[Rfam]
RNA sequence: UGAAGAAACAUCAUUGAGUGCAGCGUUGAUGAAAUUUCUCAAUUUCUGAGAUGAAUUCGUCAGCGCUGCUCUCAAUCAUGUUUUUU
Numbered sequence: 001u002g003a004a005g006a007a008a009c010a011u012c013a014u015u016g017a018g019u020g021c022a023g024c025g026u027u028g029a030u031g032a033a034a035u036u037u038c039u040c041a042a043u044u045u046c047u048g049a050g051a052u053g054a055a056u057u058c059g060u061c062a063g064c065g066c067u068g069c070u071c072u073c074a075a076u077c078a079u080g081u082u083u084u085u086u
Stems, first nucleotide, its partner, number of pairs: 006083006013076006020069009030059003
This 86-nucleotide sequence from Gossypium anomalum belongs to the Rfam family "MIR397 microRNA precursor family". For this family Rfam cites "High throughput approaches reveal splicing of primary microRNA transcripts and tissue specific expression of mature microRNAs in Vitis vinifera" (Mica et al., BMC Genomics, 2009). The family's consensus secondary structure was predicted with WAR. Lineage of the source: Eukaryota > Euphyllophyta > Mesangiospermae > eudicotyledons > Gossypium.